The record is a 158-nucleotide RNA from Glycine max, which matches "MIR4371 microRNA precursor family" in Rfam. Clan: MIR4387 microRNA precursor clan. The base pairs follow the family's consensus structure, which was predicted with RNAalifold. Rfam links the family to the GO terms miRNA-mediated post-transcriptional gene silencing and RISC complex.

RNA sequence: CCGUUAAGUGAUGACAUGGCAGACGGAGUGUCACAUUAUCACGCCCAAUCACUAACACGUCAUUGUCAUAUCAUUGAAGGUGAAAAUGUGGCAAUGAGGUAUCCCUGACAAGGCGUUAUGAUGUGGCACUUCAUCUAUCAUGUCAUCACUUAAUGGAA
Dot-bracket structure: (((((((((((((((((((.(((.(((((((((((((((.(((((...(((...(.((...........((..(........)..))...........)).)...)))...))))).))))))))))))))).))).)))))))))))))))))))..